[Rfam]
RNA: U1A polyadenylation inhibition element (PIE)
RNA sequence: CCACAUAGCAUUGUAUCCAUAGUCUGUCCCCAGACACUGCACCUGGCUCUGUUAGGCUGGAAUUAAAGUGUCUU
Number, nucleotide and partner (000 for none) at each position: 001c000002c000003a000004c000005a052006u051007a050008g049009c000010a000011u000012u000013g000014u000015a000016u000017c046018c045019a044020u000021a000022g035023u034024c033025u032026g031027u000028c000029c000030c000031c026032a025033g024034a023035c022036a000037c000038u000039g000040c000041a000042c000043c000044u019045g018046g017047c000048u000049c008050u007051g006052u005053u000054a000055g000056g000057c000058u000059g000060g000061a000062a000063u000064u000065a000066a000067a000068g000069u000070g000071u000072c000073u000074u000